[Rfam]
This 170-nucleotide sequence from Cynara cardunculus belongs to the Rfam family "U2 spliceosomal RNA". A search with the family's covariance model found it, with a score of 135 bits. Rfam 15.1 lists 71,512 matches to the family in 2,642 species. The source organism's lineage runs through Eukaryota, Streptophyta, Euphyllophyta, Asteraceae and Cynara cardunculus subsp. cardunculus. Rfam describes the family as follows. U2 is a small nuclear RNA (snRNA) component of the spliceosome (involved in pre-mRNA splicing). Complementary binding between U2 snRNA (in an area lying towards the 5' end but 3' to hairpin I) and the branchpoint sequence (BPS) of the intron results the bulging out of an unpaired adenosine, on the BPS, which initiates a nucleophilic attack at the intronic 5' splice site, thus starting the first of two transesterification reactions that mediate splicing.
RNA sequence: AUACCUAUCUCGGCCUUUUGGCUAAGAUCAAGUGUAGUAUCUGUUCUUAUCAGUUUACUAUCUGAUGUGUAGGCCAUUGGCCUACUCGAUAUUAAUCUUAUUUUUUAUGGGAAAGACUCAUUACAAUAGCUUGUUAUUGGGUCUUUGUGAGUCGUAUUGGCUCACCCCUU
Number, nucleotide and partner (000 for none) at each position: 001a000002u000003a000004c000005c000006u000007a000008u027009c026010u025011c000012g023013g022014c021015c020016u000017u000018u000019u000020g015021g014022c013023u012024a000025a010026g009027a008028u000029c000030a000031a000032g000033u000034g000035u000036a000037g000038u000039a000040u000041c000042u000043g000044u000045u000046c000047u000048u067049a066050u065051c064052a063053g062054u000055u000056u000057a000058c000059u000060a000061u000062c053063u052064g051065a050066u049067g048068u000069g085070u084071a083072g082073g081074c080075c079076a000077u000078u000079g075080g074081c073082c072083u071084a070085c069086u000087c000088g000089a000090u000091a000092u000093u000094a000095a000096u000097c000098u000099u000100a000101u000102u000103u000104u000105u000106u000107a000108u000109g000110g000111g000112a146113a145114a144115g143116a142117c141118u140119c139120a000121u000122u000123a000124c000125a000126a137127u136128a135129g134130c000131u000132u000133g000134u129135u128136a127137u126138u000139g119140g118141g117142u116143c115144u114145u113146u112147g000148u000149g163150a162151g161152u160153c159154g158155u000156a000157u000158u154159g153160g152161c151162u150163c149164a000165c000166c000167c000168c000169u000170u000